The family of this 72-nucleotide RNA is "MicA sRNA". The sequence is in the family's curated seed alignment. For this family Rfam cites "Novel small RNA-encoding genes in the intergenic regions of Escherichia coli" (Argaman et al., Curr Biol, 2001). The base pairs follow the family's consensus structure, which was predicted with WAR. Its family is annotated with mRNA binding in the Gene Ontology. By type it is a small RNA.

[Rfam]
RNA sequence: GCAAGACGCGAAAAUUGUUAUCAUCCUAUUCUCUAAGAGAUUUUAUUUUGGCCACUUUAAAGUGGCCAUUUU
Numbered sequence: 001g002c003a004a005g006a007c008g009c010g011a012a013a014a015u016u017g018u019u020a021u022c023a024u025c026c027u028a029u030u031c032u033c034u035a036a037g038a039g040a041u042u043u044u045a046u047u048u049u050g051g052c053c054a055c056u057u058u059a060a061a062g063u064g065g066c067c068a069u070u071u072u
Stems, first nucleotide, its partner, number of pairs: 022039001024038002027035002050067007